[Rfam]
RNA sequence: AUGGGCUGGGAAAAGGUUGCUGUGUGGCUAGGCCUGCUCAGGUCCAGCCCUGUACAUGUUAACCUGACCUUGCCCUAGAUGAAAAAUCCCUGGCACACUCCUUUCUUGGGUCUGCCUUGUGCAGUAGCAGGUGUGAGCAUUCUGCCAGCUGCUUGAUGGUCAUGUAUGAUACUGCAUACAAAU
Numbered sequence: 001a002u003g004g005g006c007u008g009g010g011a012a013a014a015g016g017u018u019g020c021u022g023u024g025u026g027g028c029u030a031g032g033c034c035u036g037c038u039c040a041g042g043u044c045c046a047g048c049c050c051u052g053u054a055c056a057u058g059u060u061a062a063c064c065u066g067a068c069c070u071u072g073c074c075c076u077a078g079a080u081g082a083a084a085a086a087u088c089c090c091u092g093g094c095a096c097a098c099u100c101c102u103u104u105c106u107u108g109g110g111u112c113u114g115c116c117u118u119g120u121g122c123a124g125u126a127g128c129a130g131g132u133g134u135g136a137g138c139a140u141u142c143u144g145c146c147a148g149c150u151g152c153u154u155g156a157u158g159g160u161c162a163u164g165u166a167u168g169a170u171a172c173u174g175c176a177u178a179c180a181a182a183u
Stems, first nucleotide, its partner, number of pairs: 003075004008070003015064004019059002024055002026049004032043003088110003092106002095103001118178009128168002134162003138158004144153001146151001

Shown here is a 183-nucleotide RNA sequence from Phrynocephalus forsythii, a member of the family "Small Cajal body specific RNA 16". The match comes from Rfam's covariance-model search (134 bits). A reference for the family is Darzacq et al. (2002), "Cajal body-specific small nuclear RNAs: a novel class of 2'-O-methylation and pseudouridylation guide RNAs", EMBO J. Taxonomically the source falls in Phrynocephalus (Eukaryota, Opisthokonta, Bilateria, Sarcopterygii). From the family's description: scaRNAs are a specific class of small nuclear RNAs which localise to the Cajal bodies and guide the modification of RNA polymerase II transcribed spliceosomal RNAs U1, U2, U4, U5 and U12. The family's consensus secondary structure was predicted with RNAfold.